[Rfam]
RNA: MIR4371 microRNA precursor family
Organism: Glycine soja
RNA sequence: CCAUUAAAUGAUGAUGUGAUAAAUGAAGUAUCACGUCAUCACGCACAACCACGACAUGUCAUUGUCACAUAAUCACCUUUAAUGAUAUGGCGAUGAAGUGUCACUGAUUGGGUGUGAUGACGUGAUACUUUGUCUGUCAUGUUAUCACUUAAUGGAA
Numbered sequence: 001c002c003a004u005u006a007a008a009u010g011a012u013g014a015u016g017u018g019a020u021a022a023a024u025g026a027a028g029u030a031u032c033a034c035g036u037c038a039u040c041a042c043g044c045a046c047a048a049c050c051a052c053g054a055c056a057u058g059u060c061a062u063u064g065u066c067a068c069a070u071a072a073u074c075a076c077c078u079u080u081a082a083u084g085a086u087a088u089g090g091c092g093a094u095g096a097a098g099u100g101u102c103a104c105u106g107a108u109u110g111g112g113u114g115u116g117a118u119g120a121c122g123u124g125a126u127a128c129u130u131u132g133u134c135u136g137u138c139a140u141g142u143u144a145u146c147a148c149u150u151a152a153u154g155g156a157a
Base pairs, nucleotide, nucleotide: 001155002154003153004152005151006150007149009147010146011145012144013143014142015141016140017139018138019137020136021135023133024132025131026130027129028128029127030126031125032124033123034122035121036120037119038118039117040116041115042114043113044112046110048108050106051105053102054101055100056099057098069086070085072083073082